[Rfam]
Shown here is a 75-nucleotide RNA from Octopus sinensis, a member of the family "mir-9/mir-79 microRNA precursor family".
RNA sequence: CACGACAUCUCUUCGGUUAUCUGGCUAUUUGAAAACCCUAUUUUCAAAUAGCCAGAUAACCGAAGAGAUGUCGUG
Numbered sequence: 001c002a003c004g005a006c007a008u009c010u011c012u013u014c015g016g017u018u019a020u021c022u023g024g025c026u027a028u029u030u031g032a033a034a035a036c037c038c039u040a041u042u043u044u045c046a047a048a049u050a051g052c053c054a055g056a057u058a059a060c061c062g063a064a065g066a067g068a069u070g071u072c073g074u075g
Stems, first nucleotide, its partner, number of pairs: 001075005007069020028048006

Taxonomically the source falls in Octopus (Eukaryota, Spiralia, Incirrata, Octopodidae).
It scores 63 bits against the family's covariance model.